[Rfam]
RNA sequence: GCCGCGCCUAGCCCGAGGCUGAUCCCCGAGGGCGAAAACCGGGUUCCCUUGCCCGGCUGGCGCGGCAUCCGAUCAAGGG
Numbered sequence: 001g002c003c004g005c006g007c008c009u010a011g012c013c014c015g016a017g018g019c020u021g022a023u024c025c026c027c028g029a030g031g032g033c034g035a036a037a038a039c040c041g042g043g044u045u046c047c048c049u050u051g052c053c054c055g056g057c058u059g060g061c062g063c064g065g066c067a068u069c070c071g072a073u074c075a076a077g078g079g
Base pairs, nucleotide, nucleotide: 001066002065003064004063005062006061007060008059011033012032013031014030039056040055041054042053043052046079047078048077049076050075051074